Shown here is an 85-nucleotide RNA from Bacillus sp. V5-8f, a member of the family "c-di-GMP-I riboswitch aptamer".
The family's consensus secondary structure is taken from published work.
The organism belongs to Bacillus, within Bacteria.
RNA sequence: AUCAGUAAAGGGCAAACCUAAUUGAAAGAUAGGGACGCAAAGUCACAGAUCUAAAGCUUAUCGCUAUGAUGGCUGGACUUCCGGG
Numbered sequence: 001a002u003c004a005g006u007a008a009a010g011g012g013c014a015a016a017c018c019u020a021a022u023u024g025a026a027a028g029a030u031a032g033g034g035a036c037g038c039a040a041a042g043u044c045a046c047a048g049a050u051c052u053a054a055a056g057c058u059u060a061u062c063g064c065u066a067u068g069a070u071g072g073c074u075g076g077a078c079u080u081c082c083g084g085g
Stems, first nucleotide, its partner, number of pairs: 012038002017033004022029002041079004046075003049070003056064002